[Rfam]
RNA sequence: UGGAAGUGAUGAAAUAGAGAUAAUUGGAUGUCUCUUUGAAUGGAGUGUGUGUGAUAAAUGGAAUUUAAACCAAGUCAGAGUGGGGGUAGGGUGCGGGGAAUGCGUGUGUGCGCGUGCGUAUAGAAAAGGCUUUAAACGGGGGCACUGAUGGUGCAGUGCUGAUUCCGGAGUGCAUCUGAGGCAUGUUGUUAAGUUCUGGGGUGCCCCUUUACAACAUUGCCGAUGAUUAAAGCCCAAAACAAGCCCACCGUGACAAGCCUAGGCAUCCUAAAUCUCGAACAGGUUCAUUAAUGAAAGUGAUCCUGUGAUCUGAUCCGA
Numbered sequence: 001u002g003g004a005a006g007u008g009a010u011g012a013a014a015u016a017g018a019g020a021u022a023a024u025u026g027g028a029u030g031u032c033u034c035u036u037u038g039a040a041u042g043g044a045g046u047g048u049g050u051g052u053g054a055u056a057a058a059u060g061g062a063a064u065u066u067a068a069a070c071c072a073a074g075u076c077a078g079a080g081u082g083g084g085g086g087u088a089g090g091g092u093g094c095g096g097g098g099a100a101u102g103c104g105u106g107u108g109u110g111c112g113c114g115u116g117c118g119u120a121u122a123g124a125a126a127a128g129g130c131u132u133u134a135a136a137c138g139g140g141g142g143c144a145c146u147g148a149u150g151g152u153g154c155a156g157u158g159c160u161g162a163u164u165c166c167g168g169a170g171u172g173c174a175u176c177u178g179a180g181g182c183a184u185g186u187u188g189u190u191a192a193g194u195u196c197u198g199g200g201g202u203g204c205c206c207c208u209u210u211a212c213a214a215c216a217u218u219g220c221c222g223a224u225g226a227u228u229a230a231a232g233c234c235c236a237a238a239a240c241a242a243g244c245c246c247a248c249c250g251u252g253a254c255a256a257g258c259c260u261a262g263g264c265a266u267c268c269u270a271a272a273u274c275u276c277g278a279a280c281a282g283g284u285u286c287a288u289u290a291a292u293g294a295a296a297g298u299g300a301u302c303c304u305g306u307g308a309u310c311u312g313a314u315c316c317g318a
Stems, first nucleotide, its partner, number of pairs: 001317004184216006191209001193206001196201001
Background: Shown here is a 318-nucleotide sequence from Scopus umbretta, a member of the family "Small Cajal body-specific RNA 7". On this family, see Darzacq et al., EMBO J 2002: "Cajal body-specific small nuclear RNAs: a novel class of 2'-O-methylation and pseudouridylation guide RNAs". The family's RNA type in Rfam is small Cajal body RNA. The source organism's lineage runs through Eukaryota, Craniata, Gnathostomata, Dipnotetrapodomorpha and Scopus. The base pairs follow the family's consensus structure.